[Rfam]
The family of this 64-nucleotide RNA from Drosophila rhopaloa is "Nanos 3' UTR translation control element".
Gene Ontology terms of the family: protein binding, negative regulation of translation and anterior/posterior axis specification, embryo.
The Nanos protein in Drosophila is required for correct anterior/posterior patterning in the Drosophila embryo. Translation of the nanos mRNA is repressed in the bulk cytoplasm and activated in the posterior region. Repression is mediated by a translation control element (TCE) in the 3' UTR of the mRNA. This element forms a Y-shaped structure, part of which is recognised by the Smaug protein leading to translational repression.
RNA sequence: AGGAGCAGAGGCUCUGGCAGAAUCUGUAGCGUUUAUAUAGCUAGAAAUAUAUAUACGCGUUCCG
Numbered sequence: 001a002g003g004a005g006c007a008g009a010g011g012c013u014c015u016g017g018c019a020g021a022a023u024c025u026g027u028a029g030c031g032u033u034u035a036u037a038u039a040g041c042u043a044g045a046a047a048u049a050u051a052u053a054u055a056c057g058c059g060u061u062c063c064g
Base pairs, nucleotide, nucleotide: 002063003062004061007025008024009023012020013019029058030057031056032055034053035052036051037050038049039048